[Rfam]
A member of the RNA family "tp2" from Pectobacterium atrosepticum, 129 nucleotides long.
RNA sequence: GUUAUUCCUUAUCUUCUUUAAUCAGUUAGUUUAUUGGAGCCUGUCUUCCUGCAUUCUGGCUUAGGUUUCGCCAUAAGCAAAACGCAUGAAGACAGGCUCAUCGUCGUCAUUGCCGCAUUCAGAGCCCCA
Numbered sequence: 001g002u003u004a005u006u007c008c009u010u011a012u013c014u015u016c017u018u019u020a021a022u023c024a025g026u027u028a029g030u031u032u033a034u035u036g037g038a039g040c041c042u043g044u045c046u047u048c049c050u051g052c053a054u055u056c057u058g059g060c061u062u063a064g065g066u067u068u069c070g071c072c073a074u075a076a077g078c079a080a081a082a083c084g085c086a087u088g089a090a091g092a093c094a095g096g097c098u099c100a101u102c103g104u105c106g107u108c109a110u111u112g113c114c115g116c117a118u119u120c121a122g123a124g125c126c127c128c129a
Stems, first nucleotide, its partner, number of pairs: 001114001003112002023103001025101001037099009048088001050086003054082002057079002
Pairs were carried over by alignment from the consensus structure, which was predicted with RNAalifold. Rfam classes the family as a small RNA.